[Rfam]
RNA sequence: CAACGGGGACGACCCCGUCAGCUCAUAUCAUCCACGGGACGACCCGA
Numbered sequence: 001c002a003a004c005g006g007g008g009a010c011g012a013c014c015c016c017g018u019c020a021g022c023u024c025a026u027a028u029c030a031u032c033c034a035c036g037g038g039a040c041g042a043c044c045c046g047a
Base pairs, nucleotide, nucleotide: 003018004017005016006015007014008013035046036045037044038043

Shown here is a 47-nucleotide RNA from Ramlibacter lithotrophicus, a member of the family "Guanidine-II riboswitch aptamer (mini-ykkC)". It scores 42 bits against the family's covariance model.